[Rfam]
This 96-nucleotide RNA sequence from Otolemur garnettii belongs to the Rfam family "Y RNA". The family has 104 seed sequences and 26,986 matches in Rfam 15.1. A search with the family's covariance model found it, with a score of 41 bits.
RNA sequence: GGCAGGUCUGAUGAUAGAGGGUCAUGAGAACUUAUUAACAUUAGUGUCACAAAAGUUGAUAUACAACCUCCUACAGCUAAAUUUGACUGGCUUUAA
Numbered sequence: 001g002g003c004a005g006g007u008c009u010g011a012u013g014a015u016a017g018a019g020g021g022u023c024a025u026g027a028g029a030a031c032u033u034a035u036u037a038a039c040a041u042u043a044g045u046g047u048c049a050c051a052a053a054a055g056u057u058g059a060u061a062u063a064c065a066a067c068c069u070c071c072u073a074c075a076g077c078u079a080a081a082u083u084u085g086a087c088u089g090g091c092u093u094u095a096a
Stems, first nucleotide, its partner, number of pairs: 001092003005088004010084002015079001017074001019072003033061003037057002

About the family: Y RNAs are components of the Ro ribonucleoprotein particle (Ro RNP), in association with Ro60 and La proteins. The Y RNAs and Ro60 and La proteins are well conserved, but the function of the Ro RNP is not known. The base pairs follow the family's consensus structure, which is taken from published work. The organism belongs to Otolemur, within Eukaryota.